[Rfam]
RNA sequence: UGCCGAGGUUUUCCUUGGUAGUUUACUGCCGAAGUUCUCCUCGAUAGUUAACUGCCGAGGGACAU
Numbered sequence: 001u002g003c004c005g006a007g008g009u010u011u012u013c014c015u016u017g018g019u020a021g022u023u024u025a026c027u028g029c030c031g032a033a034g035u036u037c038u039c040c041u042c043g044a045u046a047g048u049u050a051a052c053u054g055c056c057g058a059g060g061g062a063c064a065u
Base pairs, nucleotide, nucleotide: 012061013060015058016057017056018055019054020053021052022051023050025048026047027046028045
Dot-bracket structure: ...........((.(((((((((.((((................)))).))))))))).))....

The record is a 65-nucleotide RNA from Medicago truncatula, which matches "MIR2629 microRNA precursor family" in Rfam. The family's consensus secondary structure was predicted with RNAalifold. The match comes from Rfam's covariance-model search (62 bits). The organism belongs to Medicago, within Eukaryota.